[Rfam]
RNA sequence: CUUUUUUACGCAUAGCAAAUCACCUCACUACAUUCUAUAGUUCCUAUAGAAGAAUGAACAGGUAUGGAAAGACGUGUUAUAUAGUCUCACAGUUCCUAUUGUGUGUAAAAAGGUACGAAUCACGCUGCAAAUGCGGUUAAUAAAAAACCGUUGUUUACAGCUCUUUUUGGGAUACGGACUUUGAUAUAUUCUCUCGAACGACGGUUGAAAAGCCGUCGUUUUUUCUUUUUCCUCACGG
Number, nucleotide and partner (000 for none) at each position: 001c113002u112003u111004u110005u000006u000007u107008a106009c000010g000011c103012a000013u101014a100015g099016c000017a097018a000019a000020u000021c000022a000023c000024c000025u000026c000027a000028c000029u076030a075031c074032a000033u072034u071035c000036u069037a000038u067039a000040g065041u064042u000043c062044c061045u060046a000047u058048a000049g000050a055051a000052g000053a000054a000055u050056g000057a000058a047059c000060a045061g044062g043063u000064a041065u040066g000067g038068a000069a036070a000071g034072a033073c000074g031075u030076g029077u000078u091079a000080u089081a000082u000083a000084g000085u000086c000087u000088c000089a080090c000091a078092g000093u000094u000095c000096c000097u017098a000099u015100u014101g013102u000103g011104u000105g000106u008107a007108a000109a000110a004111a003112g002113g001114u000115a000116c000117g000118a000119a000120u000121c000122a000123c000124g161125c160126u159127g158128c000129a156130a155131a154132u000133g151134c150135g149136g148137u000138u000139a000140a000141u000142a000143a000144a000145a000146a000147a000148c136149c135150g134151u133152u000153g000154u131155u130156u129157a000158c127159a126160g125161c124162u000163c000164u000165u000166u000167u000168u000169g000170g000171g000172a000173u000174a000175c000176g000177g000178a000179c000180u000181u000182u000183g000184a000185u000186a000187u000188a000189u000190u000191c000192u000193c000194u000195c000196g221197a220198a219199c218200g217201a000202c215203g214204g213205u212206u211207g000208a000209a000210a000211a206212g205213c204214c203215g202216u000217c200218g199219u198220u197221u196222u000223u000224u000225c000226u000227u000228u000229u000230u000231c000232c000233u000234c000235a000236c000237g000238g000

A member of the RNA family "Cis-regulator of HTH transcription factor" from Lachnospiraceae bacterium MD308, 238 nucleotides long. It is annotated as a cis-regulatory element. Rfam's curators write: This element was identified by RNA deep sequencing of Clostridioides difficile 630 where it is located immediately upstream of an uncharacterized HTH-type Transcriptional regulator. Homologues are found widely across firmicutes, consistently located 5' of transcriptional regulators of similar size and sequence, which strongly supports a cis-regulatory function. RNA is referred to as CD630_SQ2397 in ref. Note: the sequence is highly conserved and shows no evidence for covariation as per R-scape analysis.